[Rfam]
RNA sequence: UCUAGAACUCGAGAUAUGGGCUGAAAGCUGAACAGUAUCUGGGCUGCAGGACAGAUGCCGACGUCUCCGUUGUUGCUACCAUUUGAACUUGAAAAUGGCACUUUUAAAUCGUGGACUCUGUAUGAAAGUUUUAGGCCUAUGUCUUAGCUUUCCAUA
Numbered sequence: 001u002c003u004a005g006a007a008c009u010c011g012a013g014a015u016a017u018g019g020g021c022u023g024a025a026a027g028c029u030g031a032a033c034a035g036u037a038u039c040u041g042g043g044c045u046g047c048a049g050g051a052c053a054g055a056u057g058c059c060g061a062c063g064u065c066u067c068c069g070u071u072g073u074u075g076c077u078a079c080c081a082u083u084u085g086a087a088c089u090u091g092a093a094a095a096u097g098g099c100a101c102u103u104u105u106a107a108a109u110c111g112u113g114g115a116c117u118c119u120g121u122a123u124g125a126a127a128g129u130u131u132u133a134g135g136c137c138u139a140u141g142u143c144u145u146a147g148c149u150u151u152c153c154a155u156a
Stems, first nucleotide, its partner, number of pairs: 003154001005152003008147002011145010021134005027129003035123003041119003045115001048112001050110002054105002057102001060099001062098001072088003
Dot-bracket structure: ..(.(((((.(((((((((((((((.(((.....(((...(((.(..(.((..((.(..(.(.........(((...........))).........))..).))...)).)..).))).)))...)))))))).))))))))))))..))).)..
RNA: MIR2912 microRNA precursor family
Organism: Populus deltoides